[Rfam]
RNA: A. fumigatus sRNA Afu_309
Organism: Beauveria bassiana
RNA sequence: UCCUUUUCUACUUCACCGGAUCUGUGCCAGUCAUCCUCUGCCUUGUUGCGGAGUUGAUGUCUGUGCAGCUCGAUACCUCAUGGAGCCAUCAACUUGUUAUGAUGUCAAUUUCCUAUCGACAGGUCCCAGAGCAAUCGGGGGUGUGGUUGCACUGCUCGUCGUCCUCUGUGGCGGCUGAUGUGGUGAUCACAGUCAUGCUUCCAAAGCGCUAUAUUUCAAACCUUUUUUCCUAGGUCGUUGACCUAUGCGGUUGAGGAAAACCAUGGCGUCUUACAUAU
Numbered sequence: 001u002c003c004u005u006u007u008c009u010a011c012u013u014c015a016c017c018g019g020a021u022c023u024g025u026g027c028c029a030g031u032c033a034u035c036c037u038c039u040g041c042c043u044u045g046u047u048g049c050g051g052a053g054u055u056g057a058u059g060u061c062u063g064u065g066c067a068g069c070u071c072g073a074u075a076c077c078u079c080a081u082g083g084a085g086c087c088a089u090c091a092a093c094u095u096g097u098u099a100u101g102a103u104g105u106c107a108a109u110u111u112c113c114u115a116u117c118g119a120c121a122g123g124u125c126c127c128a129g130a131g132c133a134a135u136c137g138g139g140g141g142u143g144u145g146g147u148u149g150c151a152c153u154g155c156u157c158g159u160c161g162u163c164c165u166c167u168g169u170g171g172c173g174g175c176u177g178a179u180g181u182g183g184u185g186a187u188c189a190c191a192g193u194c195a196u197g198c199u200u201c202c203a204a205a206g207c208g209c210u211a212u213a214u215u216u217c218a219a220a221c222c223u224u225u226u227u228u229c230c231u232a233g234g235u236c237g238u239u240g241a242c243c244u245a246u247g248c249g250g251u252u253g254a255g256g257a258a259a260a261c262c263a264u265g266g267c268g269u270c271u272u273a274c275a276u277a278u
Base pairs, nucleotide, nucleotide: 018126019125020124021123022122023121024120025119026066027065028063029062030061032059033058034057035056036053037052038051039050040049074118081107082106083105085103087101137200138199139198143196144195145194146193147191152183153182154181155180158179159178160177161175162174163173164171165170205271206270208267209266210265211264212263222256223255224254225253229250230249233243234242235241236240